Overview:
The record is a 183-nucleotide RNA from Caldanaerobacter subterraneus, which matches "6S / SsrS RNA" in Rfam.

RNA sequence: AAAACCCUGUGGUGUUCGUGUGACCCGGUGAAAGGUUGAGCCAACACCAAAAAUAAGGGAGCCUGGGCUUUGGCAGUGGAUUGUAGGCCGCCUCGUCGCGGAAACAUGAAGCUGCCAAGAGGGCACCCACUUUGUGAGGACGGGUUCAAAACCUACCGGUAGGCACGGCACUAUGGGGUUUUU
Numbered sequence: 001a002a003a004a005c006c007c008u009g010u011g012g013u014g015u016u017c018g019u020g021u022g023a024c025c026c027g028g029u030g031a032a033a034g035g036u037u038g039a040g041c042c043a044a045c046a047c048c049a050a051a052a053a054u055a056a057g058g059g060a061g062c063c064u065g066g067g068c069u070u071u072g073g074c075a076g077u078g079g080a081u082u083g084u085a086g087g088c089c090g091c092c093u094c095g096u097c098g099c100g101g102a103a104a105c106a107u108g109a110a111g112c113u114g115c116c117a118a119g120a121g122g123g124c125a126c127c128c129a130c131u132u133u134g135u136g137a138g139g140a141c142g143g144g145u146u147c148a149a150a151a152c153c154u155a156c157c158g159g160u161a162g163g164c165a166c167g168g169c170a171c172u173a174u175g176g177g178g179u180u181u182u183u
Stems, first nucleotide, its partner, number of pairs: 002181014017167003034153003037148006057128003061124004071117007083105002088101004

Pairs were carried over by alignment from the consensus structure, which is taken from published work. Rfam's curators put it in the seed alignment. NCBI's taxonomy places the organism under Bacteria, Clostridia, Thermoanaerobacteraceae, Caldanaerobacter, Caldanaerobacter subterraneus subsp. tengcongensis.